[Rfam]
RNA sequence: UGGCGCCCAAUGUGGGGCUGGAAACUGAGGCAGCAGUGAGGGAGAUGACGUGAAAAGGAACGCGUUCGACAAACUUUGAAAUACUUCGGAGCCGCUGCGGAAACCUGCCUCGGCCUAAACUGAAAGUAAGUGGAAACGUCUGAUCAUGGGGCAAGAAUUAAGCCAGCAUGAGCUUUAUGUUAAACGGUUAAAGGAGGCUUUAAAGACAGGGGGAGUAAAGGUUAAAACUGCAGAUUUAUUUCACUUUUUUGACUUUGUAAAGGAAGCCUGUCCCU
Number, nucleotide and partner (000 for none) at each position: 001u000002g000003g000004c000005g000006c030007c029008c000009a000010a000011u000012g025013u024014g000015g000016g000017g000018c000019u000020g000021g000022a000023a000024a013025c012026u000027g000028a000029g007030g006031c000032a000033g000034c000035a000036g046037u045038g000039a000040g000041g000042g000043a000044g000045a037046u036047g000048a000049c000050g000051u000052g000053a000054a000055a000056a000057g000058g000059a000060a000061c000062g000063c000064g000065u000066u000067c000068g000069a000070c000071a000072a000073a000074c000075u000076u000077u000078g000079a000080a000081a000082u000083a127084c126085u125086u123087c122088g000089g000090a000091g000092c000093c000094g000095c000096u112097g111098c000099g109100g108101a000102a000103a000104c000105c000106u000107g000108c100109c099110u000111c097112g096113g000114c000115c000116u000117a000118a000119a000120c000121u000122g087123a086124a000125a085126g084127u083128a000129a000130g000131u000132g000133g000134a000135a000136a000137c151138g000139u150140c149141u148142g147143a000144u000145c000146a000147u142148g141149g140150g139151g137152c000153a000154a000155g000156a000157a000158u000159u202160a201161a200162g198163c197164c196165a000166g000167c000168a000169u000170g000171a000172g000173c000174u000175u000176u000177a000178u000179g000180u000181u000182a000183a000184a000185c000186g000187g000188u000189u000190a000191a000192a000193g000194g000195a000196g164197g163198c162199u000200u161201u160202a159203a000204a000205g000206a000207c000208a000209g000210g250211g249212g248213g247214a246215g245216u000217a000218a000219a237220g236221g235222u234223u233224a000225a000226a000227a000228c000229u000230g000231c000232a000233g223234a222235u221236u220237u219238a000239u000240u000241u000242c000243a000244c000245u215246u214247u213248u212249u211250u210251g000252a000253c000254u000255u000256u000257g000258u000259a000260a275261a000262g273263g272264a271265a000266g000267c000268c000269u000270g000271u264272c263273c262274c000275u260
Shown here is a 275-nucleotide RNA from Nannospalax galili, a member of the family "Mason-Pfizer monkey virus packaging signal". The family's RNA type in Rfam is cis-regulatory element. The source organism's lineage runs through Eukaryota, Teleostomi, Mammalia, Myomorpha and Nannospalax.